[Rfam]
RNA sequence: AUUACUGCGAUGAGAAGGACACGAAUUAUUUUUACGGCUUUCAGAGAGGGAAGAACAGGCUGAAAUCUUCCUAGCUUAGGGAAAUAAUUUACCGCCUUUGAGCUGUAUUGGGGAACUUGAAGUAUCCAAUGCCGUCUAUGCUACGUUACAGCACCAGAGCCAUAAGCCAUCCAUUGAGCUUAUGGGAAGUUGGGUGGAACCACGGGUUAAUGCACACUCGUCCCUUAU
Numbered sequence: 001a002u003u004a005c006u007g008c009g010a011u012g013a014g015a016a017g018g019a020c021a022c023g024a025a026u027u028a029u030u031u032u033u034a035c036g037g038c039u040u041u042c043a044g045a046g047a048g049g050g051a052a053g054a055a056c057a058g059g060c061u062g063a064a065a066u067c068u069u070c071c072u073a074g075c076u077u078a079g080g081g082a083a084a085u086a087a088u089u090u091a092c093c094g095c096c097u098u099u100g101a102g103c104u105g106u107a108u109u110g111g112g113g114a115a116c117u118u119g120a121a122g123u124a125u126c127c128a129a130u131g132c133c134g135u136c137u138a139u140g141c142u143a144c145g146u147u148a149c150a151g152c153a154c155c156a157g158a159g160c161c162a163u164a165a166g167c168c169a170u171c172c173a174u175u176g177a178g179c180u181u182a183u184g185g186g187a188a189g190u191u192g193g194g195u196g197g198a199a200c201c202a203c204g205g206g207u208u209a210a211u212g213c214a215c216a217c218u219c220g221u222c223c224c225u226u227a228u
Stems, first nucleotide, its partner, number of pairs: 007103002015098004026087006037075003048072006106131007133145003160185007192224003202221005